[Rfam]
RNA sequence: UGGUUGGCAGGUUCCUUACUCCUCCUCCCAAAGGGGCCUGCAUGGUCAUCAGCUAUCCUCCUCCCAGCUGAUGAUCGGUUAUUUGGAAAAGCCUGCCGCACCUCCUCCCGCGGCAGGCUUUUUCG
Numbered sequence: 001u002g003g004u005u006g007g008c009a010g011g012u013u014c015c016u017u018a019c020u021c022c023u024c025c026u027c028c029c030a031a032a033g034g035g036g037c038c039u040g041c042a043u044g045g046u047c048a049u050c051a052g053c054u055a056u057c058c059u060c061c062u063c064c065c066a067g068c069u070g071a072u073g074a075u076c077g078g079u080u081a082u083u084u085g086g087a088a089a090a091g092c093c094u095g096c097c098g099c100a101c102c103u104c105c106u107c108c109c110g111c112g113g114c115a116g117g118c119u120u121u122u123u124c125g
Stems, first nucleotide, its partner, number of pairs: 007041003011037007044076010089120011
This 125-nucleotide RNA from Rhizobium sp. RU36D belongs to the Rfam family "Alphaproteobacterial ar14".
For this family Rfam cites "A survey of sRNA families in alpha-proteobacteria" (del Val et al., RNA Biol, 2012).
It scores 100 bits against the family's covariance model.
Smr14C2 was renamed NfeR1 (Nodule Formation Efficiency RNA) highly expressed in salt stress and during the symbiotic interaction on legume roots.
Pairs were carried over by alignment from the consensus structure.